[Rfam]
RNA: FMN riboswitch aptamer (RFN element)
Organism: Clostridium senegalense
RNA sequence: AAUACUCUUCAGGGCGGGGUGUAAUUCCCCACCGGCGGUAAAGCCCGCGAGCCUUAUGGCAUGAUUCGGUUAAAUUCCGAAGCCGACAGUACAGUCUGGAUGAAAGAAGAUUAAU
Numbered sequence: 001a002a003u004a005c006u007c008u009u010c011a012g013g014g015c016g017g018g019g020u021g022u023a024a025u026u027c028c029c030c031a032c033c034g035g036c037g038g039u040a041a042a043g044c045c046c047g048c049g050a051g052c053c054u055u056a057u058g059g060c061a062u063g064a065u066u067c068g069g070u071u072a073a074a075u076u077c078c079g080a081a082g083c084c085g086a087c088a089g090u091a092c093a094g095u096c097u098g099g100a101u102g103a104a105a106g107a108a109g110a111u112u113a114a115u
Stems, first nucleotide, its partner, number of pairs: 003113002006110005017029003031095002033085002035048004043083002053059001065081005087098003
Dot-bracket structure: ..((.(((((......(((.......))).[[((((((....[[))))....(.....).....(((((.......)))))]])).(((....]]))).......))))).))..